This 52-nucleotide RNA from Solanum commersonii belongs to the Rfam family "MIR1886 microRNA precursor family". Rfam links the family to the GO terms miRNA-mediated post-transcriptional gene silencing and RISC complex.
RNA sequence: UGAGAUGAAAUCAGCAUCUGGAUAUGUGAUUUUAUGCUGAUUUUAUCUCAUG
Numbered sequence: 001u002g003a004g005a006u007g008a009a010a011u012c013a014g015c016a017u018c019u020g021g022a023u024a025u026g027u028g029a030u031u032u033u034a035u036g037c038u039g040a041u042u043u044u045a046u047c048u049c050a051u052g
Stems, first nucleotide, its partner, number of pairs: 001050017019028002
A search with the family's covariance model found it, with a score of 69 bits.